[Rfam]
RNA sequence: AAUUAAAUAAGAAUCCGAAUCUAAAGGCCUGUGGCCCUAAGCUAUGGCCUUUGGAUCUGGGUGUUCCGGGAAACUGGUGCACCUCCCAUUGCGGAAAGGAUUGCCAGUGUGUAAUAA
Dot-bracket structure: ..(..(.....(((((..(((((((((((...(((.....)))..)))))))))))..((((((.((((....)))).))))))((......))...))))).....)..)......
Numbered sequence: 001a002a003u004u005a006a007a008u009a010a011g012a013a014u015c016c017g018a019a020u021c022u023a024a025a026g027g028c029c030u031g032u033g034g035c036c037c038u039a040a041g042c043u044a045u046g047g048c049c050u051u052u053g054g055a056u057c058u059g060g061g062u063g064u065u066c067c068g069g070g071a072a073a074c075u076g077g078u079g080c081a082c083c084u085c086c087c088a089u090u091g092c093g094g095a096a097a098g099g100a101u102u103g104c105c106a107g108u109g110u111g112u113a114a115u116a117a
Stems, first nucleotide, its partner, number of pairs: 003111001006108001012102005019056011033043003059084006066077004085094002